[Rfam]
RNA: drz-agam-2-2 ribozyme
Organism: Anopheles sinensis
RNA sequence: AUCCCGUGUCGUUCUGUAACGGGUUGGAUCCGACGCCUCUUUAAGGCUCUCCUACCCAACUCCUACUCAAUACGUCCGCGACGUGCAGAACGGUAACUUGUCGCCUAAAUAUCCAAGCUUGGGUACACGGGGAAACCCACCCCCUUGGACAGAUGGGCGGCAAGGCUGAAUUGAGAGGG
Numbered sequence: 001a002u003c004c005c006g007u008g009u010c011g012u013u014c015u016g017u018a019a020c021g022g023g024u025u026g027g028a029u030c031c032g033a034c035g036c037c038u039c040u041u042u043a044a045g046g047c048u049c050u051c052c053u054a055c056c057c058a059a060c061u062c063c064u065a066c067u068c069a070a071u072a073c074g075u076c077c078g079c080g081a082c083g084u085g086c087a088g089a090a091c092g093g094u095a096a097c098u099u100g101u102c103g104c105c106u107a108a109a110u111a112u113c114c115a116a117g118c119u120u121g122g123g124u125a126c127a128c129g130g131g132g133a134a135a136c137c138c139a140c141c142c143c144c145u146u147g148g149a150c151a152g153a154u155g156g157g158c159g160g161c162a163a164g165g166c167u168g169a170a171u172u173g174a175g176a177g178g179g
Base pairs, nucleotide, nucleotide: 011091012090013089014088015087016086017085021057022056023055024054026052027051028050030046031045061179062178063177064176066175067174068173069172070171071170072084073083074082076093077092097164098163099162100161101160102159103158104157105156106155111154112153113152120139121138122137123136124135143148